[Rfam]
RNA sequence: CAUCCCCUGCAGUGUACGACAGCAGGCCAGUUAUUCCUUUGAGCCUAUGCUUACGCACUUCGGGAUCGUUGCACGGCGGCUGGUGUGUAUGUCCGCCACCGAGCGGAAAGCCUGAGGCCCCGUUUCGGUCCCUCUUGAACCUCUCGGUUCAAGGAUCACGGCCGGCAUCGGCACAGGUGGGGGAUGC
Numbered sequence: 001c002a003u004c005c006c007c008u009g010c011a012g013u014g015u016a017c018g019a020c021a022g023c024a025g026g027c028c029a030g031u032u033a034u035u036c037c038u039u040u041g042a043g044c045c046u047a048u049g050c051u052u053a054c055g056c057a058c059u060u061c062g063g064g065a066u067c068g069u070u071g072c073a074c075g076g077c078g079g080c081u082g083g084u085g086u087g088u089a090u091g092u093c094c095g096c097c098a099c100c101g102a103g104c105g106g107a108a109a110g111c112c113u114g115a116g117g118c119c120c121c122g123u124u125u126c127g128g129u130c131c132c133u134c135u136u137g138a139a140c141c142u143c144u145c146g147g148u149u150c151a152a153g154g155a156u157c158a159c160g161g162c163c164g165g166c167a168u169c170g171g172c173a174c175a176g177g178u179g180g181g182g183g184a185u186g187c
Stems, first nucleotide, its partner, number of pairs: 002185009012174004017170003035155004040151006062132003066128003071123001075121002078119004087111002092107005
RNA: 6S / SsrS RNA
Organism: endosymbiont of unidentified scaly snail isolate Monju